[Rfam]
Nucleotides: 115
Stems, first nucleotide, its partner, number of pairs: 003077001006074001009066005016059003027053008095115001097114003102109001
Number, partner (000 for none) and nucleotide at each position: 001000a002000g003077c004000c005000a006074u007000g008000u009066g010065g011064u012063g013062a014000a015000c016059a017058c018057a019000g020000a021000g022000c023000g024000a025000a026000u027053u028052a029051u030050u031049c032048u033047u034046u035000c036000g037000c038000c039000u040000u041000u042000u043000a044000c045000u046034a047033a048032a049031g050030g051029a052028u053027a054000c055000c056000g057018u058017g059016u060000a061000c062013u063012c064011g065010c066009c067000u068000c069000u070000u071000u072000a073000a074006a075000c076000u077003g078000u079000a080000u081000a082000c083000c084000u085000c086000u087000a088000u089000u090000u091000u092000u093000g094000g095115a096000g097114g098113a099112g100000u101000u102109g103000u104000u105000a106000u107000u108000a109102c110000u111000u112099u113098u114097u115095u

The record is a 115-nucleotide RNA from Acer saccharum, which matches "U5 spliceosomal RNA" in Rfam. The family's consensus secondary structure is taken from published work. NCBI's taxonomy places the organism under Eukaryota, Viridiplantae, Spermatophyta, Gunneridae, Acer. Rfam classes the family as a spliceosomal small nuclear RNA. The family has 180 seed sequences and 28,527 matches in Rfam 15.1. Rfam describes the family as follows. U5 RNA is a component of both types of known spliceosome.